[Rfam]
RNA sequence: GCGGGGCUGCCCGGCACGAGCCGCAUGAACAUCCCUGAGGCUAUAAGCAAUCCAAGGGAGCUGUCCCUGCCCUGGUCCACCGGUUCGGCCGUGGGAUUGGGGCAUACGGCACCCACCUGACGUUUUAGGCGUCAGAGGAUUUCGCCGGAAACGACCCAUGGUGGUCCCGCC
Numbered sequence: 001g002c003g004g005g006g007c008u009g010c011c012c013g014g015c016a017c018g019a020g021c022c023g024c025a026u027g028a029a030c031a032u033c034c035c036u037g038a039g040g041c042u043a044u045a046a047g048c049a050a051u052c053c054a055a056g057g058g059a060g061c062u063g064u065c066c067c068u069g070c071c072c073u074g075g076u077c078c079a080c081c082g083g084u085u086c087g088g089c090c091g092u093g094g095g096a097u098u099g100g101g102g103c104a105u106a107c108g109g110c111a112c113c114c115a116c117c118u119g120a121c122g123u124u125u126u127a128g129g130c131g132u133c134a135g136a137g138g139a140u141u142u143c144g145c146c147g148g149a150a151a152c153g154a155c156c157c158a159u160g161g162u163g164g165u166c167c168c169g170c171c
Stems, first nucleotide, its partner, number of pairs: 002169010013156002017153002032139003035135004040130002056114003060110005069103007081091003
Shown here is a 171-nucleotide RNA sequence from Erythrobacter aureus, a member of the family "6S / SsrS RNA". For this family Rfam cites "6S RNA Mimics B-Form DNA to Regulate Escherichia coli RNA Polymerase" (Chen et al., Molecular Cell, 2017). Lineage of the source: Bacteria > Pseudomonadati > Alphaproteobacteria > Erythrobacteraceae > Erythrobacter. The family's RNA type in Rfam is non-coding RNA gene.